[Rfam]
RNA: Small nucleolar RNA Z155
Organism: Nelumbo nucifera
RNA sequence: CGUUGAAGUGAUGAUUUCUUAUUCCGAAAAUAUGAAUUAAUGUGGAUUGAAAAAUCAGACUACAAUUAUCUGAUCAACG
Numbered sequence: 001c002g003u004u005g006a007a008g009u010g011a012u013g014a015u016u017u018c019u020u021a022u023u024c025c026g027a028a029a030a031u032a033u034g035a036a037u038u039a040a041u042g043u044g045g046a047u048u049g050a051a052a053a054a055u056c057a058g059a060c061u062a063c064a065a066u067u068a069u070c071u072g073a074u075c076a077a078c079g
Base pairs, nucleotide, nucleotide: 001079002078003077004076005075006074